[Rfam]
RNA sequence: GGUCACGAGUACCAGCACUAAGCCCCGGCUCGCUGGUCGGCAACCCUCCUCCGCGGUGGGGUGCUCCGGGUGACGACCUGGCCGUCGCUGAUAUCCGUCGCGAUGGCAAGAGCGGAUU
Dot-bracket structure: ((((....(.((((((....((......)).)))))))(((..(((.((.....))..))).))).........))))..((((((((.(.......).))))))))...........
This 118-nucleotide RNA from Nocardia camponoti belongs to the Rfam family "SAM (S-adenosyl methionine) riboswitch aptamer". It scores 107 bits against the family's covariance model. Taxonomically the source falls in Nocardia (Bacteria, Actinomycetes, Mycobacteriales, Nocardiaceae). Its Rfam clan is "SAM clan".